[Rfam]
RNA sequence: UCGCCCACAAUGCCCUCAACGGUUUCAACACGGAUGUGUCUUCGCUUGGGCUGGUCGAAUAGAUCGUAGCAAUGCCCGAGCCGAUAGGUUACCGAGUCAUUUCGGGCAUCUCUGUUGGAGUCGUUGUCGAUGCGCGUCAGUUCGUUUGUCGUGAUGUGCACCGGCUCCUUCGUUGGUCUCCUCGCGCUAACCCCGUAGCGUGUGGUUUUUAGCGGGCUAUCAAGCCCGCUUUUUUUU
Numbered sequence: 001u002c003g004c005c006c007a008c009a010a011u012g013c014c015c016u017c018a019a020c021g022g023u024u025u026c027a028a029c030a031c032g033g034a035u036g037u038g039u040c041u042u043c044g045c046u047u048g049g050g051c052u053g054g055u056c057g058a059a060u061a062g063a064u065c066g067u068a069g070c071a072a073u074g075c076c077c078g079a080g081c082c083g084a085u086a087g088g089u090u091a092c093c094g095a096g097u098c099a100u101u102u103c104g105g106g107c108a109u110c111u112c113u114g115u116u117g118g119a120g121u122c123g124u125u126g127u128c129g130a131u132g133c134g135c136g137u138c139a140g141u142u143c144g145u146u147u148g149u150c151g152u153g154a155u156g157u158g159c160a161c162c163g164g165c166u167c168c169u170u171c172g173u174u175g176g177u178c179u180c181c182u183c184g185c186g187c188u189a190a191c192c193c194c195g196u197a198g199c200g201u202g203u204g205g206u207u208u209u210u211a212g213c214g215g216g217c218u219a220u221c222a223a224g225c226c227c228g229c230u231u232u233u234u235u236u237u
Base pairs, nucleotide, nucleotide: 005176006175007174018125019124020123021122022121023120024119025118026117027116028115029114030113032111033110034109035108036107037106038076040074042071044070045069046068079085092105093104094103095102128158129157180205181204183202184201185200186199187198188197189196211230212229213228214227215226216225217224218223
The family of this 237-nucleotide RNA sequence from Trinickia dinghuensis is "Burkholderia sRNA Bp1_Cand871_SIPHT". The family's RNA type in Rfam is small RNA. For this family Rfam cites "Identification of small RNAs abundant in Burkholderia cenocepacia biofilms reveal putative regulators with a potential role in carbon and iron metabolism" (Sass et al., Sci Rep, 2017). Rfam links the family to the GO term bacterial biofilm matrix.